[Rfam]
A member of the RNA family "DUF805b RNA" from Mariniblastus fucicola, 35 nucleotides long.
RNA sequence: CAGGAGCAGGCCGAAAAUCCUCAACAGAGUAGGCG
Numbered sequence: 001c002a003g004g005a006g007c008a009g010g011c012c013g014a015a016a017a018u019c020c021u022c023a024a025c026a027g028a029g030u031a032g033g034c035g
Stems, first nucleotide, its partner, number of pairs: 002021004010034003